[Rfam]
RNA sequence: UUAACUCAAAUUUGUAAGCAGUCGAAACAGCGCCCCUAGCGGCAAACGUAGGCAAACGUCCCAACUCCAUACAAAUUUCAGUUA
Numbered sequence: 001u002u003a004a005c006u007c008a009a010a011u012u013u014g015u016a017a018g019c020a021g022u023c024g025a026a027a028c029a030g031c032g033c034c035c036c037u038a039g040c041g042g043c044a045a046a047c048g049u050a051g052g053c054a055a056a057c058g059u060c061c062c063a064a065c066u067c068c069a070u071a072c073a074a075a076u077u078u079c080a081g082u083u084a
Base pairs, nucleotide, nucleotide: 008078009077010076011075012074013073014072015071016070018068020066021065022064024062027059028058034052035051039047

Overview: Rfam assigns this 84-nucleotide sequence from Bombyx mori to the family "mir-2807 microRNA precursor family". Pairs were carried over by alignment from the consensus structure, which was predicted with RNAalifold. NCBI's taxonomy places the organism under Eukaryota, Metazoa, Hexapoda, Neolepidoptera, Bombyx. A search with the family's covariance model found it, with a score of 58 bits.